[Rfam]
Background: Mammalian CPEB3 ribozyme: an 80-nucleotide sequence from Crocodylus porosus. The family has 14 seed sequences and 5,706 matches in Rfam 15.1.
RNA sequence: AGAGGUUGCACGUUCCAGGCAAUAACAGAAGUGCUCACAGCACAGCCAUGUCAGAUUCCAGUGAACCUCCAAAUUCUGCU
Numbered sequence: 001a002g003a004g005g006u007u008g009c010a011c012g013u014u015c016c017a018g019g020c021a022a023u024a025a026c027a028g029a030a031g032u033g034c035u036c037a038c039a040g041c042a043c044a045g046c047c048a049u050g051u052c053a054g055a056u057u058c059c060a061g062u063g064a065a066c067c068u069c070c071a072a073a074u075u076c077u078g079c080u
Base pairs, nucleotide, nucleotide: 013048018047019046020045024080026078027077028076029075030074031043032042033041053068054067056065057064058063

Pairs were carried over by alignment from the consensus structure, which is taken from published work. Taxonomically the source falls in Crocodylus (Eukaryota, Bilateria, Sauropsida, Archelosauria). The match comes from Rfam's covariance-model search (37 bits).